[Rfam]
RNA sequence: AUAUAGGACAAGCCGAAGUUCGAUAGAACACGGGGAAACCAUUUUUGGGGUGAAUCCGCUUUACAGCGGUAGGGACUCCCUUAUCCCGAAUCCGUCAGCUAACCCCGCAGGCUUAGAAAGGGAGGUAUC
Numbered sequence: 001a002u003a004u005a006g007g008a009c010a011a012g013c014c015g016a017a018g019u020u021c022g023a024u025a026g027a028a029c030a031c032g033g034g035g036a037a038a039c040c041a042u043u044u045u046u047g048g049g050g051u052g053a054a055u056c057c058g059c060u061u062u063a064c065a066g067c068g069g070u071a072g073g074g075a076c077u078c079c080c081u082u083a084u085c086c087c088g089a090a091u092c093c094g095u096c097a098g099c100u101a102a103c104c105c106c107g108c109a110g111g112c113u114u115a116g117a118a119a120g121g122g123a124g125g126u127a128u129c
Base pairs, nucleotide, nucleotide: 011113012112013111014110018029019028020027031107032106033105034104035103040047041046048093049092050091056069057068058067059066072087073086074085075084
c-di-AMP riboswitch aptamer (ydaO/yuaA leader): a 129-nucleotide RNA sequence from Allolucifera butyrica.
The organism belongs to Allolucifera, within Bacteria.
From the family's description: This family represents a conserved RNA structure found upstream of the ydaO and yuaA genes in Bacillus subtilis and related genes in other bacteria.
A search with the family's covariance model found it, with a score of 105 bits.